[Rfam]
RNA sequence: GGGUGCUCACCCCACGGGGUGGCAGGAUUUGCGUCGGUCGGGCCGCCACG
Numbered sequence: 001g002g003g004u005g006c007u008c009a010c011c012c013c014a015c016g017g018g019g020u021g022g023c024a025g026g027a028u029u030u031g032c033g034u035c036g037g038u039c040g041g042g043c044c045g046c047c048a049c050g
Base pairs, nucleotide, nucleotide: 005023006022008021009020010019011018012017032050033049034048036047037046038045
Notes: Rfam assigns this 50-nucleotide RNA from Cupriavidus sp. HPC(L) to the family "nhaA-I RNA". The source organism's lineage runs through Bacteria, Pseudomonadati, Betaproteobacteria, Burkholderiales and Cupriavidus. The base pairs follow the family's consensus structure, which is taken from published work. It scores 45 bits against the family's covariance model. Rfam describes the family as follows. Acidobacteria, Alphaproteobacteria, Betaproteobacteria and Gammaproteobacteria, Verrucomicrobia, cand. division NC10.